RNA sequence: AGUGGGAGUAGAGGAGCAGAGACCAUCAGUACGUAUGCGUAGGGAGUGUGGGAUCCUUGUGCGUUUACGGAAAGGGGUAUUUGCCGAAGCUAGGAAUGACUCACGCAUUCCGAAGCUGGUCUUGCAUUAAAUAAGUGCAGGGCUGUCAUAUAGCAAGAGGCUAUAUGGAGGGCUAUCUCACGC
Number, nucleotide and partner (000 for none) at each position: 001a000002g000003u000004g000005g000006g178007a000008g176009u175010a174011g173012a000013g000014g000015a000016g084017c083018a082019g081020a080021g000022a078023c077024c076025a000026u000027c000028a000029g000030u000031a000032c069033g068034u067035a066036u000037g064038c063039g062040u000041a000042g000043g000044g000045a000046g000047u000048g000049u000050g000051g000052g000053a000054u000055c000056c000057u000058u000059g000060u000061g000062c039063g038064u037065u000066u035067a034068c033069g032070g000071a000072a000073a000074g000075g000076g024077g023078u022079a000080u020081u019082u018083g017084c016085c000086g000087a000088a117089g116090c115091u113092a000093g111094g110095a109096a108097u107098g106099a000100c000101u000102c000103a000104c000105g000106c098107a097108u096109u095110c094111c093112g000113a091114a000115g090116c089117u088118g144119g143120u142121c141122u140123u139124g138125c137126a136127u135128u134129a000130a000131a000132u000133a000134a128135g127136u126137g125138c124139a123140g122141g121142g120143c119144u118145g000146u168147c167148a166149u165150a164151u163152a162153g000154c000155a000156a000157g000158a000159g000160g000161c000162u152163a151164u150165a149166u148167g147168g146169a000170g000171g000172g000173c011174u010175a009176u008177c000178u006179c000180a000181c000182g000183c000
Rfam assigns this 183-nucleotide RNA sequence from Salicibibacter halophilus to the family "Lysine riboswitch aptamer". NCBI's taxonomy places the organism under Bacteria, Bacillota, Bacilli, Bacillaceae, Salicibibacter. The family's consensus secondary structure is taken from published work. Its family is annotated with lysine biosynthetic process in the Gene Ontology.